The family of this 319-nucleotide RNA from Variovorax terrae is "Bacterial RNase P class A".
The family's RNA type in Rfam is ribozyme.
RNA sequence: GAAGCCCGCCAGACCGCCGCUGGUGCAAUCGUGGAAACACGGCACUGGAGGAACGUCCGGACUGCACAGGGCAGCGUAGCAGGUAACACCUGUCCACCGUGAGGUGAGGAUCAGAGCAACAGAGACGAGCCGCUUCAGUGCGGGUGAAACGGGCAAUCUCUACGCGCAGCAAUACCAAGUAGGCCAGCGUUGAUGUGGCUCCGCAGAGCUGGCGGGUAGGUAGCAUCGAGCCGCCGGGGCGACCCGCGGCCCAGAGUAAUGGCGGUCACGUCGGGGGCAACCCCGACGCACAGAAUCCGGCUUACGGCGGACUUCACAC
Numbered sequence: 001g002a003a004g005c006c007c008g009c010c011a012g013a014c015c016g017c018c019g020c021u022g023g024u025g026c027a028a029u030c031g032u033g034g035a036a037a038c039a040c041g042g043c044a045c046u047g048g049a050g051g052a053a054c055g056u057c058c059g060g061a062c063u064g065c066a067c068a069g070g071g072c073a074g075c076g077u078a079g080c081a082g083g084u085a086a087c088a089c090c091u092g093u094c095c096a097c098c099g100u101g102a103g104g105u106g107a108g109g110a111u112c113a114g115a116g117c118a119a120c121a122g123a124g125a126c127g128a129g130c131c132g133c134u135u136c137a138g139u140g141c142g143g144g145u146g147a148a149a150c151g152g153g154c155a156a157u158c159u160c161u162a163c164g165c166g167c168a169g170c171a172a173u174a175c176c177a178a179g180u181a182g183g184c185c186a187g188c189g190u191u192g193a194u195g196u197g198g199c200u201c202c203g204c205a206g207a208g209c210u211g212g213c214g215g216g217u218a219g220g221u222a223g224c225a226u227c228g229a230g231c232c233g234c235c236g237g238g239g240c241g242a243c244c245c246g247c248g249g250c251c252c253a254g255a256g257u258a259a260u261g262g263c264g265g266u267c268a269c270g271u272c273g274g275g276g277g278c279a280a281c282c283c284c285g286a287c288g289c290a291c292a293g294a295a296u297c298c299g300g301c302u303u304a305c306g307g308c309g310g311a312c313u314u315c316a317c318a319c
Base pairs, nucleotide, nucleotide: 001315002314003313004312006310007309008308009307010306012267013266014265015264016263017262018261020048021047022046023045024044025043026042053303055301057300058299059298060297061296062169063168064167065166069201070200071199072198074165075164076163077162078161079093080092081091082090083089094108095106096105097104098103109160110159114158115157116154117153130143131142132139133138173222174221175220176219183213184212185211186210187209188208194205195204196203197202230250231249232248233247235246236245237244238243
Lineage of the source: Bacteria > Pseudomonadati > Pseudomonadota > Comamonadaceae > Variovorax. From the family's description: Ribonuclease P (RNase P) is a ubiquitous endoribonuclease, found in archaea, bacteria and eukarya as well as chloroplasts and mitochondria. It scores 199 bits against the family's covariance model.